[Rfam]
RNA: RNA Staph. aureus E (RoxS)
Organism: Metabacillus arenae
RNA sequence: GUGAAGUUGAUCACAAACAAACAUUUACCCCUUUGUUUGACCGUGAAAAAUUUCUCCCAUCCCCUUUGUUGUCGUUAAGACAUAUUAUUAGGGAGGUUGCGCUUUAUCCCGAGCGUAACCUUCC
Numbered sequence: 001g002u003g004a005a006g007u008u009g010a011u012c013a014c015a016a017a018c019a020a021a022c023a024u025u026u027a028c029c030c031c032u033u034u035g036u037u038u039g040a041c042c043g044u045g046a047a048a049a050a051u052u053u054c055u056c057c058c059a060u061c062c063c064c065u066u067u068g069u070u071g072u073c074g075u076u077a078a079g080a081c082a083u084a085u086u087a088u089u090a091g092g093g094a095g096g097u098u099g100c101g102c103u104u105u106a107u108c109c110c111g112a113g114c115g116u117a118a119c120c121u122u123c124c
Base pairs, nucleotide, nucleotide: 003054004053005052006051007050008049011046012045013044014043018039019038020037021036022035023034070090094121095120096119097118098117099116100115101114102113103112104111